[Rfam]
This 406-nucleotide RNA from Allopusillimonas soli belongs to the Rfam family "Bacterial RNase P class A".
RNA sequence: GAGGCAGGCUGGGCAAUCGCGACGCCGUUGGCGCCGAGGAAGGUCCGGACUCCACAGGGCAGGGUAGCGGCUAACGGCCGUCCGGCGAGGCAUGCGGCAACGCGCCAAGCCGAGGAACAGGGCCACAGAGACGAGUCUGCCGCGAGGGCGUGCCAUGGGCGCGCACCGACACGGCCAUCUCCGUGUCGCAUGGGUGGUGACAUCCAUGGCGCGGCAGGGUGAAACGCGGCAACCUCUAUCCGGAGCAACACCAAAUAGGCAUGCGCACGGCUCAGGCCGGAAAGGGCGGCCCGUCCAAGCAUGCGGGUAGGUGGCUGGAAUCGAGCAGCAAUGUUCGAUCAAGAGGAAUGAUUGCCCGCCUGGCUUGCCAGGCGUACAGAAUCCGGCCUAUAGGCCUGUCUCCCAU
Numbered sequence: 001g002a003g004g005c006a007g008g009c010u011g012g013g014c015a016a017u018c019g020c021g022a023c024g025c026c027g028u029u030g031g032c033g034c035c036g037a038g039g040a041a042g043g044u045c046c047g048g049a050c051u052c053c054a055c056a057g058g059g060c061a062g063g064g065u066a067g068c069g070g071c072u073a074a075c076g077g078c079c080g081u082c083c084g085g086c087g088a089g090g091c092a093u094g095c096g097g098c099a100a101c102g103c104g105c106c107a108a109g110c111c112g113a114g115g116a117a118c119a120g121g122g123c124c125a126c127a128g129a130g131a132c133g134a135g136u137c138u139g140c141c142g143c144g145a146g147g148g149c150g151u152g153c154c155a156u157g158g159g160c161g162c163g164c165a166c167c168g169a170c171a172c173g174g175c176c177a178u179c180u181c182c183g184u185g186u187c188g189c190a191u192g193g194g195u196g197g198u199g200a201c202a203u204c205c206a207u208g209g210c211g212c213g214g215c216a217g218g219g220u221g222a223a224a225c226g227c228g229g230c231a232a233c234c235u236c237u238a239u240c241c242g243g244a245g246c247a248a249c250a251c252c253a254a255a256u257a258g259g260c261a262u263g264c265g266c267a268c269g270g271c272u273c274a275g276g277c278c279g280g281a282a283a284g285g286g287c288g289g290c291c292c293g294u295c296c297a298a299g300c301a302u303g304c305g306g307g308u309a310g311g312u313g314g315c316u317g318g319a320a321u322c323g324a325g326c327a328g329c330a331a332u333g334u335u336c337g338a339u340c341a342a343g344a345g346g347a348a349u350g351a352u353u354g355c356c357c358g359c360c361u362g363g364c365u366u367g368c369c370a371g372g373c374g375u376a377c378a379g380a381a382u383c384c385g386g387c388c389u390a391u392a393g394g395c396c397u398g399u400c401u402c403c404c405a406u
Base pairs, nucleotide, nucleotide: 001402002401003400004399005398006397007396008395009394010393011391012356013355014354015353016352017351018350020036021035023033024032025031026030041389042388043387045386046385047384048383049382050245051244052243053242057292058291059290060289062241063240064239065238066237067081068080069079070078071077082114083112084111085110086109115236116235120234121233122230123229124228137218138217139215140214141213142212143211144210147207249313250312251311252310259304260303261302262301263300264299284296285295286294287293320339321338322337323336324335325334326333327332
Notes: The organism belongs to Allopusillimonas, within Bacteria.